Rfam assigns this 154-nucleotide RNA sequence from Amborella trichopoda to the family "MIR8565 microRNA precursor family". The match comes from Rfam's covariance-model search (136 bits).
RNA sequence: CCCACACCCAUGUGUGUAGGACUCUAAAGGAUCACAAUUAAAUUUGCCACACAUCUCUAGAAAAGUUAUCACAUGUGUGUAGGACUUGACUUUUCUAGAGAUUUGUACCAAAUUUAAUGGUGAUUUUUUGGGAUUCUACACACAUGGGUGUGGG
Numbered sequence: 001c002c003c004a005c006a007c008c009c010a011u012g013u014g015u016g017u018a019g020g021a022c023u024c025u026a027a028a029g030g031a032u033c034a035c036a037a038u039u040a041a042a043u044u045u046g047c048c049a050c051a052c053a054u055c056u057c058u059a060g061a062a063a064a065g066u067u068a069u070c071a072c073a074u075g076u077g078u079g080u081a082g083g084a085c086u087u088g089a090c091u092u093u094u095c096u097a098g099a100g101a102u103u104u105g106u107a108c109c110a111a112a113u114u115u116a117a118u119g120g121u122g123a124u125u126u127u128u129u130g131g132g133a134u135u136c137u138a139c140a141c142a143c144a145u146g147g148g149u150g151u152g153g154g
Base pairs, nucleotide, nucleotide: 002153003152004151005150006149007148008147009146010145011144012143013142015140016139017138018137019136020135021134023132024131025130026129027128028127030125031124032123034121035120037118038117039116040115041114042113043112044111045110046109049106050105051104053102054101055100056099057098058097059096060095061094062093063092064091065090066089067088068087069082071080072079073078

The organism belongs to Amborella, within Eukaryota. Pairs were carried over by alignment from the consensus structure, which was predicted with RNAalifold. Rfam links the family to the GO terms RISC complex and miRNA-mediated post-transcriptional gene silencing.